[Rfam]
RNA sequence: CUGCUCUGCCCAUUUUUUUGGGCGCUUCCUCCCUAGACUUGGGCCGCGUCGGGCGACCGAUGCGGUCUUUUUUUUGGCAAA
Number, nucleotide and partner (000 for none) at each position: 001c000002u000003g000004c000005u000006c000007u000008g023009c022010c021011c020012a000013u000014u000015u000016u000017u000018u000019u000020g011021g010022g009023c008024g000025c000026u000027u000028c000029c000030u000031c000032c000033c000034u000035a000036g000037a000038c000039u000040u000041g000042g000043g066044c065045c064046g063047c062048g061049u060050c059051g058052g000053g000054c000055g000056a000057c000058c051059g050060a049061u048062g047063c046064g045065g044066u043067c000068u000069u000070u000071u000072u000073u000074u000075u000076g000077g000078c000079a000080a000081a000
The record is an 81-nucleotide RNA from Aerobium aerolatum, which matches "Makes More Granules Regulator RNA (mmgR)" in Rfam. Rfam classes the family as a small RNA. The family has 87 seed sequences and 1,791 matches in Rfam 15.1. SuhB later renamed mmgR (makes more granules regulator) was a putative non-coding RNA found multiple times in the Agrobacterium tumefaciens genome and related alpha-proteobacteria. The base pairs follow the family's consensus structure.